[Rfam]
RNA sequence: UGGCUCAGUUUCCUGGGGGUGGGCUCAGCCUACACCACCUCCCCUCAGCUGAGCCUAGAAUAGAGGGGCCAGGCACCCUCCUUCAUGGGAGAGGUAUUUAAGGAAGGCGCCUCGCCUGGGCUGGCCUAGCCUCACAUUU
Numbered sequence: 001u002g003g004c005u006c007a008g009u010u011u012c013c014u015g016g017g018g019g020u021g022g023g024c025u026c027a028g029c030c031u032a033c034a035c036c037a038c039c040u041c042c043c044c045u046c047a048g049c050u051g052a053g054c055c056u057a058g059a060a061u062a063g064a065g066g067g068g069c070c071a072g073g074c075a076c077c078c079u080c081c082u083u084c085a086u087g088g089g090a091g092a093g094g095u096a097u098u099u100a101a102g103g104a105a106g107g108c109g110c111c112u113c114g115c116c117u118g119g120g121c122u123g124g125c126c127u128a129g130c131c132u133c134a135c136a137u138u139u
Stems, first nucleotide, its partner, number of pairs: 002055006015043003018039005065133005071127003077120003087112003
Shown here is a 139-nucleotide sequence from Ictidomys tridecemlineatus, a member of the family "Small Cajal body specific RNA 21". Taxonomically the source falls in Ictidomys (Eukaryota, Gnathostomata, Sarcopterygii, Rodentia). Its family is annotated with RNA processing, Cajal body and nucleolus in the Gene Ontology. Rfam describes the family as follows. scaRNAs are a specific class of small nuclear RNAs which localise to the Cajal bodies and guide the modification of RNA polymerase II transcribed spliceosomal RNAs U1, U2, U4, U5 and U12. ACA68 (SCARNA21) is a member of the H/ACA class of snoRNAs that guide the sites of modification of uridines to pseudouridines. This snoRNA was identified by computational screening and its expression in mouse experimentally verified by Northern blot and primer extension analysis. It is annotated as a small Cajal body RNA. A reference for the family is Darzacq et al. (2002), "Cajal body-specific small nuclear RNAs: a novel class of 2'-O-methylation and pseudouridylation guide RNAs", EMBO J.